Rfam assigns this 122-nucleotide sequence from Halobacteroides halobius to the family "Molybdenum/Tungsten riboswitch aptamer (Moco RNA motif)".
RNA sequence: AAAUAUUUUCGUCUUCGAGCCUUACUACCUACGGAUUAAAUUCUAAGGUAAAGAGGCCGCCUAGGGGUUAGAGAGAAAUUUUUGGCCCUCCCGACUUGGAAAGAAGGCAGAUAAGGGCCAAC
Numbered sequence: 001a002a003a004u005a006u007u008u009u010c011g012u013c014u015u016c017g018a019g020c021c022u023u024a025c026u027a028c029c030u031a032c033g034g035a036u037u038a039a040a041u042u043c044u045a046a047g048g049u050a051a052a053g054a055g056g057c058c059g060c061c062u063a064g065g066g067g068u069u070a071g072a073g074a075g076a077a078a079u080u081u082u083u084g085g086c087c088c089u090c091c092c093g094a095c096u097u098g099g100a101a102a103g104a105a106g107g108c109a110g111a112u113a114a115g116g117g118c119c120a121a122c
Base pairs, nucleotide, nucleotide: 004115006113011108012107013106014105015104016103019057020056021055022054023053026050027049028048029047033044034043035042064089065088066087067086068085069084070083071082072081073080074079090099091098

A search with the family's covariance model found it, with a score of 72 bits.